[Rfam]
RNA sequence: GGGCAUUCAGAAGGCUUGCAAUCUGGGCUACAUGCGGAGGACCUAGUUUCUCAUUCCCGCCCAGGGGAAAGUCCCCGGACUCUGGGCAGAAAGUGUCCCUGGUUGAAACCAGUGUCGGCUCACGCUGCACCGUUUAAAAGCUGAGACGUUCACUGAGCAGAGCUUGGUGAUCGUGGGCCGACUUUGUCAGCGUUGAUAGUAAUGCAAGCAGUUACUAACGCGGAAACAGAACGGGGCUCAUUCUCGGAAUGCA
Numbered sequence: 001g002g003g004c005a006u007u008c009a010g011a012a013g014g015c016u017u018g019c020a021a022u023c024u025g026g027g028c029u030a031c032a033u034g035c036g037g038a039g040g041a042c043c044u045a046g047u048u049u050c051u052c053a054u055u056c057c058c059g060c061c062c063a064g065g066g067g068a069a070a071g072u073c074c075c076c077g078g079a080c081u082c083u084g085g086g087c088a089g090a091a092a093g094u095g096u097c098c099c100u101g102g103u104u105g106a107a108a109c110c111a112g113u114g115u116c117g118g119c120u121c122a123c124g125c126u127g128c129a130c131c132g133u134u135u136a137a138a139a140g141c142u143g144a145g146a147c148g149u150u151c152a153c154u155g156a157g158c159a160g161a162g163c164u165u166g167g168u169g170a171u172c173g174u175g176g177g178c179c180g181a182c183u184u185u186g187u188c189a190g191c192g193u194u195g196a197u198a199g200u201a202a203u204g205c206a207a208g209c210a211g212u213u214a215c216u217a218a219c220g221c222g223g224a225a226a227c228a229g230a231a232c233g234g235g236g237c238u239c240a241u242u243c244u245c246g247g248a249a250u251g252c253a
Stems, first nucleotide, its partner, number of pairs: 003252006010245002014209006022065007037052005070238002073236004085097004099112005115181009128169003138165004148158004215223001

The record is a 253-nucleotide RNA sequence from Perca fluviatilis, which matches "RNase MRP" in Rfam. The family's consensus secondary structure is taken from published work. It is annotated as a ribozyme. A reference for the family is Schmitt et al. (1993), "Secondary structure of RNase MRP RNA as predicted by phylogenetic comparison", FASEB J.